[Rfam]
RNA: Plastid-ccsA-ndhD-1 3UTR RNA
Organism: Hansenia weberbaueriana
RNA sequence: UAUAAAUCAGUGAGAACCAUGUGAAUCAAGUAGUGCGGGGAUUCGCAUGGUUCUCACAA
Numbered sequence: 001u002a003u004a005a006a007u008c009a010g011u012g013a014g015a016a017c018c019a020u021g022u023g024a025a026u027c028a029a030g031u032a033g034u035g036c037g038g039g040g041a042u043u044c045g046c047a048u049g050g051u052u053c054u055c056a057c058a059a
Stems, first nucleotide, its partner, number of pairs: 010057018